[Rfam]
Shown here is an 83-nucleotide RNA sequence from Artemisia annua, a member of the family "MIR397 microRNA precursor family". The family has 7 seed sequences and 496 matches in Rfam 15.1.
RNA sequence: ACUUAAAACGUCAUUGAGUGCAGCGUUGAUGAAUCGCCUCAAAGCAUGGAGAUUCGUCAACACUGUACUCAAUUAUGUUUUUG
Numbered sequence: 001a002c003u004u005a006a007a008a009c010g011u012c013a014u015u016g017a018g019u020g021c022a023g024c025g026u027u028g029a030u031g032a033a034u035c036g037c038c039u040c041a042a043a044g045c046a047u048g049g050a051g052a053u054u055c056g057u058c059a060a061c062a063c064u065g066u067a068c069u070c071a072a073u074u075a076u077g078u079u080u081u082u083g
Base pairs, nucleotide, nucleotide: 006080007079008078009077010076011075013073014072015071016070017069018068019067020066021065022064023063025061026060027059028058030056031055032054033053034052035051

NCBI's taxonomy places the organism under Eukaryota, Spermatophyta, eudicotyledons, Artemisiinae, Artemisia.